Shown here is a 99-nucleotide RNA sequence from Psychromonas algicola, a member of the family "TPP riboswitch aptamer (THI element)".
[Rfam]
Nucleotides: 099
Stems, first nucleotide, its partner, number of pairs: 006087005011049004017026003033042003055080004062073003
Number, partner (000 for none) and nucleotide at each position: 001000c002000a003000c004000u005000u006087a007086u008085a009084g010083u011049c012048g013047g014046g015000g016000a017026g018025c019024c020000a021000a022000a023000a024019g025018g026017c027000u028000g029000a030000g031000a032000u033042c034041g035040a036000a037000u038000a039000a040035u041034c042033g043000a044000u045000a046014c047013c048012c049011g050000u051000u052000g053000a054000a055080c056079c057078u058077g059000a060000u061000a062073c063072a064071g065000u066000u067000a068000g069000u070000a071064c072063u073062g074000g075000c076000g077058c078057a079056g080055g081000g082000a083010a084009c085008u086007a087006u088000g089000u090000c091000c092000a093000a094000a095000u096000a097000c098000c099000g
The match comes from Rfam's covariance-model search (75 bits).